[Rfam]
RNA sequence: UCACCAUCCAGAGCGACCGAGAGACCUUGGCUCUACGACGUCGCAGCAACCCCCUGCCUCACGGCAGGUGUGGGUGCUACCGCCAGGACCGAUGGAGG
Number, nucleotide and partner (000 for none) at each position: 001u098002c097003a000004c095005c094006a093007u092008c091009c000010a000011g000012a000013g044014c043015g042016a041017c040018c000019g000020a000021g033022a032023g031024a000025c000026c000027u086028u085029g084030g083031c023032u022033c021034u000035a000036c000037g000038a000039c000040g017041u016042c015043g014044c013045a078046g077047c076048a075049a000050c074051c073052c070053c000054c068055u067056g000057c000058c000059u000060c000061a000062c000063g000064g000065c000066a000067g055068g054069u000070g052071u000072g000073g051074g050075u048076g047077c046078u045079a000080c000081c000082g090083c030084c029085a028086g027087g000088a000089c000090c082091g008092a007093u006094g005095g004096a000097g002098g001
The record is a 98-nucleotide RNA from Rhodococcus sp. P1Y, which matches "SAM riboswitch aptamer (S box leader)" in Rfam. A search with the family's covariance model found it, with a score of 53 bits. Lineage of the source: Bacteria > Bacillati > Actinomycetes > Mycobacteriales > Rhodococcus.